Shown here is a 111-nucleotide sequence from Streptococcus massiliensis, a member of the family "Streptococcus RNA 266". The family's RNA type in Rfam is small RNA.
RNA sequence: AAUGAUGGUUUGGUCGCUUUUCAUUAUAGGUCAUAUGGGACUUUUUUUCUACAACAAAAUAAGCUCCAUAAUCCCUAAAGUGAUUUUACCCACUACAGAAAUUAUAGAGCC
Numbered sequence: 001a002a003u004g005a006u007g008g009u010u011u012g013g014u015c016g017c018u019u020u021u022c023a024u025u026a027u028a029g030g031u032c033a034u035a036u037g038g039g040a041c042u043u044u045u046u047u048u049c050u051a052c053a054a055c056a057a058a059a060u061a062a063g064c065u066c067c068a069u070a071a072u073c074c075c076u077a078a079a080g081u082g083a084u085u086u087u088a089c090c091c092a093c094u095a096c097a098g099a100a101a102u103u104a105u106a107g108a109g110c111c
Stems, first nucleotide, its partner, number of pairs: 001025005008017002028043005063110004068105005075098001079094004
Dot-bracket structure: (((((..((......))...)))))..(((((......)))))...................((((.(((((..(...((((........))))...)..))))).)))).

The literature on the family includes a 2012 paper in RNA by Acebo et al., "Identification of 88 regulatory small RNAs in the TIGR4 strain of the human pathogen Streptococcus pneumoniae".